[Rfam]
RNA sequence: GAUUUCAACUGAAAAAGUAAUCAACAACAAAGUUGAAUAACUCAUCAAGAUCUAAAACUUUUAUUUUGGUCAUUUCUUCAUCUGAUAAAAUGUUAGUAACAUUGUUCACAAAUUUUACAUAUAUGUAUUAUAGUUUAUAAAAACCAGACAAGAGAUAUGUAAAUUUUGUGGACAAUGUUACUAUCACUUUAUCAGAUAAAGAAAUGACCAAAAUAAAAGUCUUAGAUCUUGAUGAGUUGUUCAACUUUGUUGUUGAUAACUUUUUCAGUUGAAAUC
Number, nucleotide and partner (000 for none) at each position: 001g000002a000003u000004u000005u000006c000007a000008a000009c000010u000011g000012a000013a000014a263015a262016a261017g260018u259019a000020a257021u256022c000023a254024a253025c000026a251027a250028c000029a000030a247031a246032g245033u244034u243035g242036a241037a240038u239039a238040a237041c236042u235043c000044a233045u232046c231047a230048a229049g228050a227051u226052c225053u224054a000055a222056a000057a220058c219059u218060u217061u216062u215063a214064u213065u212066u211067u210068g000069g208070u207071c206072a205073u204074u203075u202076c000077u200078u199079c000080a197081u196082c000083u194084g193085a192086u191087a190088a189089a188090a000091u186092g185093u000094u183095a182096g181097u180098a179099a178100c000101a176102u175103u174104g173105u172106u171107c170108a169109c168110a167111a166112a165113u000114u163115u162116u000117a160118c159119a158120u157121a156122u155123a000124u000125g000126u000127a000128u000129u000130a000131u146132a000133g144134u143135u142136u141137a000138u000139a000140a000141a136142a135143a134144c133145c000146a131147g000148a000149c000150a000151a000152g000153a000154g000155a122156u121157a120158u119159g118160u117161a000162a115163a114164u000165u112166u111167u110168g109169u108170g107171g106172a105173c104174a103175a102176u101177g000178u099179u098180a097181c096182u095183a094184u000185c092186a091187c000188u089189u088190u087191a086192u085193c084194a083195g000196a081197u080198a000199a078200a077201g000202a075203a074204a073205u072206g071207a070208c069209c000210a067211a066212a065213a064214u063215a062216a061217a060218a059219g058220u057221c000222u055223u000224a053225g052226a051227u050228c049229u048230u047231g046232a045233u044234g000235a042236g041237u040238u039239g038240u037241u036242c035243a034244a033245c032246u031247u030248u000249g000250u027251u026252g000253u024254u023255g000256a021257u020258a000259a018260c017261u016262u015263u014264u000265u000266c000267a000268g000269u000270u000271g000272a000273a000274a000275u000276c000
Description:
The family of this 276-nucleotide RNA from Oryza rufipogon is "MIR821 microRNA precursor family". The match comes from Rfam's covariance-model search (255 bits). Gene Ontology terms of the family: miRNA-mediated post-transcriptional gene silencing and RISC complex. Taxonomically the source falls in Oryza (Eukaryota, Euphyllophyta, Spermatophyta, Oryzeae). A reference for the family is Luo et al. (2006), "Rice embryogenic calli express a unique set of microRNAs, suggesting regulatory roles of microRNAs in plant post-embryogenic development", FEBS Lett.